[Rfam]
RNA sequence: GCAGCGUGAGGUAGUAGAUUGUAUAGUUGUGGGGCAGUGAUUUUGCCCCGUUCGGAAGAUAACUGUACAAUCUACUGCCUUCCUUGA
Numbered sequence: 001g002c003a004g005c006g007u008g009a010g011g012u013a014g015u016a017g018a019u020u021g022u023a024u025a026g027u028u029g030u031g032g033g034g035c036a037g038u039g040a041u042u043u044u045g046c047c048c049c050g051u052u053c054g055g056a057a058g059a060u061a062a063c064u065g066u067a068c069a070a071u072c073u074a075c076u077g078c079c080u081u082c083c084u085u086g087a
Stems, first nucleotide, its partner, number of pairs: 002086003006082001008081020032048004051058002
Source information: let-7 microRNA precursor family: an 87-nucleotide sequence from Scleropages formosus. The family's consensus secondary structure was predicted with RNAalifold. This family represents the microRNAs (miRNA) let-7 and mir-98. let-7 was identified from a study of developmental timing in C. elegans, and was later shown to be part of a much larger class of non-coding RNAs termed miRNAs. Gene Ontology terms of the family: RISC complex and miRNA-mediated post-transcriptional gene silencing. It scores 74 bits against the family's covariance model. A reference for the family is Rougvie (2001), "Control of developmental timing in animals", Nat Rev Genet.